[Rfam]
RNA: Bacterial RNase P class A
Organism: Sphingomonas sp. YR710
RNA sequence: CCAGAGGGUCGGGCGAUCGCUGCGCAUCGUUUAUGCGGUGCGGGGAGGAAAGUCCGGGCUCCAAGGAGUGAAGGUGCCGGGUAACGCCCGGCGGGGGGCGUAAGCCCUUCAGGGAUAGUGCCACAGAAAACAUACCGCCCGGCGGGCCGGCUUGCCGGUUCCGGGUAAGGUCGAAACGGUGCGGCAAGAGCGCACCGCGGGCCCGGCAACGGGAACGGCAUGGCAAACCCCACCUGGAGCAAGAUCGAAUAGGGACGGCGCAUGGGCUACUCCGCCCAGUCGUCCGGGUUGAUUGCUGGAGGCCGUGCGCAAGCCCGGUCCUAGAGGAAUGAUCGCCCAUCCGGUGGCAACACCGGUGGACAGAACCCGGCUUACAGACCCUCUGGCCAU
Numbered sequence: 001c002c003a004g005a006g007g008g009u010c011g012g013g014c015g016a017u018c019g020c021u022g023c024g025c026a027u028c029g030u031u032u033a034u035g036c037g038g039u040g041c042g043g044g045g046a047g048g049a050a051a052g053u054c055c056g057g058g059c060u061c062c063a064a065g066g067a068g069u070g071a072a073g074g075u076g077c078c079g080g081g082u083a084a085c086g087c088c089c090g091g092c093g094g095g096g097g098g099c100g101u102a103a104g105c106c107c108u109u110c111a112g113g114g115a116u117a118g119u120g121c122c123a124c125a126g127a128a129a130a131c132a133u134a135c136c137g138c139c140c141g142g143c144g145g146g147c148c149g150g151c152u153u154g155c156c157g158g159u160u161c162c163g164g165g166u167a168a169g170g171u172c173g174a175a176a177c178g179g180u181g182c183g184g185c186a187a188g189a190g191c192g193c194a195c196c197g198c199g200g201g202c203c204c205g206g207c208a209a210c211g212g213g214a215a216c217g218g219c220a221u222g223g224c225a226a227a228c229c230c231c232a233c234c235u236g237g238a239g240c241a242a243g244a245u246c247g248a249a250u251a252g253g254g255a256c257g258g259c260g261c262a263u264g265g266g267c268u269a270c271u272c273c274g275c276c277c278a279g280u281c282g283u284c285c286g287g288g289u290u291g292a293u294u295g296c297u298g299g300a301g302g303c304c305g306u307g308c309g310c311a312a313g314c315c316c317g318g319u320c321c322u323a324g325a326g327g328a329a330u331g332a333u334c335g336c337c338c339a340u341c342c343g344g345u346g347g348c349a350a351c352a353c354c355g356g357u358g359g360a361c362a363g364a365a366c367c368c369g370g371c372u373u374a375c376a377g378a379c380c381c382u383c384u385g386g387c388c389a390u
Stems, first nucleotide, its partner, number of pairs: 001386010011375001012337007020045002023042006050373003054370005059239004068271001072235005077091005092112001093110007113230002118228002120224003135170002137166006144159001178196006197219001198217002202213004243294004253285006263278005301320005307314002